A member of the RNA family "Small nucleolar RNA SNORA26" from Sapajus apella, 121 nucleotides long. The match comes from Rfam's covariance-model search (112 bits). Pairs were carried over by alignment from the consensus structure, which was predicted with RNAalifold. Rfam classes the family as an H/ACA-box small nucleolar RNA. The snoRNA HBI-6 belong to the H/ACA family of snoRNAs, guiding the pseudouridylation of position U4522 if the 28S rRNA. HBI-6 is the human orthologue of mouse MBI-6 snoRNA. Its Rfam clan is "SNORA27 clan".
RNA sequence: GUGCCUUUUUAGGGUUAACACAGUGCCUUAAGAGCUAACACAAAAGGGCAAAGUAAGUCUCCAUAAAAGCCGGAGAAGACGCUGUGAAGCUCCGUUCGGGAUCCUGUCUGGAGUCACAGCU
Numbered sequence: 001g002u003g004c005c006u007u008u009u010u011a012g013g014g015u016u017a018a019c020a021c022a023g024u025g026c027c028u029u030a031a032g033a034g035c036u037a038a039c040a041c042a043a044a045a046g047g048g049c050a051a052a053g054u055a056a057g058u059c060u061c062c063a064u065a066a067a068a069g070c071c072g073g074a075g076a077a078g079a080c081g082c083u084g085u086g087a088a089g090c091u092c093c094g095u096u097c098g099g100g101a102u103c104c105u106g107u108c109u110g111g112a113g114u115c116a117c118a119g120c121u
Stems, first nucleotide, its partner, number of pairs: 002050009014039004019034001021032001057115001059113005070100002073097003078092002082089002